[Rfam]
RNA sequence: CUCUUAUCAAGAGAGGUGGAGGGACUGGCCCGAUGAAACCCGGCAACCGCCAGCAACAGUUGGAAAGGUGCCAAUUCCCGCGAGAGCUAUGCUUGGCAGAUGAGAG
Numbered sequence: 001c002u003c004u005u006a007u008c009a010a011g012a013g014a015g016g017u018g019g020a021g022g023g024a025c026u027g028g029c030c031c032g033a034u035g036a037a038a039c040c041c042g043g044c045a046a047c048c049g050c051c052a053g054c055a056a057c058a059g060u061u062g063g064a065a066a067g068g069u070g071c072c073a074a075u076u077c078c079c080g081c082g083a084g085a086g087c088u089a090u091g092c093u094u095g096g097c098a099g100a101u102g103a104g105a106g
Stems, first nucleotide, its partner, number of pairs: 001106008013041001015040003021031003025080001027078002042072004047068002050063003076098001081095004086090001
Notes: This 106-nucleotide RNA from Scopulibacillus darangshiensis belongs to the Rfam family "SAM riboswitch aptamer (S box leader)". The match comes from Rfam's covariance-model search (89 bits). Lineage of the source: Bacteria > Bacillota > Bacilli > Sporolactobacillaceae > Scopulibacillus. Pairs were carried over by alignment from the consensus structure, which is taken from published work.